[Rfam]
The family of this 87-nucleotide sequence from Desulfonispora thiosulfatigenes is "c-di-GMP-I riboswitch aptamer".

RNA sequence: UAAUGCCAAGGGAAAACCCGGUUAAACACGGGGAUACAAAGCCAUAGGGUCUACGGCGUUUUACACUAUGAUAGUCUGGCUGCAAAC
Number, nucleotide and partner (000 for none) at each position: 001u000002a000003a000004u000005g000006c000007c000008a000009a000010g000011g000012g037013a000014a000015a000016a000017c032018c031019c030020g029021g000022u000023u000024a000025a000026a000027c000028a000029c020030g019031g018032g017033g000034a000035u000036a000037c012038a000039a000040a081041g080042c079043c078044a000045u000046a077047g076048g075049g072050u071051c070052u000053a000054c000055g000056g066057c000058g064059u063060u000061u000062u000063a059064c058065a000066c056067u000068a000069u000070g051071a050072u049073a000074g000075u048076c047077u046078g043079g042080c041081u040082g000083c000084a000085a000086a000087c000
Notes: The base pairs follow the family's consensus structure, which is taken from published work. A search with the family's covariance model found it, with a score of 46 bits.